[Rfam]
RNA: Small nucleolar RNA Z122
Organism: Durio zibethinus
RNA sequence: AUUGGUAAAUGAUGACAGCUUAAUUGCUGGAUAGUAUCUGAGUAAGCUUUGAAGAAUUAUAUAUUGUACGUUAGUCUGAUCCCAAA
Number, nucleotide and partner (000 for none) at each position: 001a000002u085003u084004g083005g082006u000007a080008a000009a000010u000011g000012a000013u000014g000015a000016c000017a000018g000019c000020u000021u000022a000023a000024u000025u000026g000027c000028u000029g000030g000031a000032u000033a000034g000035u000036a000037u000038c000039u000040g000041a000042g000043u000044a000045a000046g000047c000048u000049u000050u000051g000052a000053a000054g000055a000056a000057u000058u000059a000060u000061a000062u000063a000064u000065u000066g000067u000068a000069c000070g000071u000072u000073a000074g000075u000076c000077u000078g000079a000080u007081c000082c005083c004084a003085a002086a000